This 61-nucleotide RNA sequence belongs to the Rfam family "Glutamine-II riboswitch aptamer".
The family's consensus secondary structure is taken from published work.
Rfam's curators put it in the seed alignment.

RNA sequence: UUACGUUCAUCUACUUAAUCGUAGACGCAUCAAUACAUCAUUCAUGGAACGGGGGAUGGUG
Numbered sequence: 001u002u003a004c005g006u007u008c009a010u011c012u013a014c015u016u017a018a019u020c021g022u023a024g025a026c027g028c029a030u031c032a033a034u035a036c037a038u039c040a041u042u043c044a045u046g047g048a049a050c051g052g053g054g055g056a057u058g059g060u061g
Stems, first nucleotide, its partner, number of pairs: 004051005010025005036061006042054002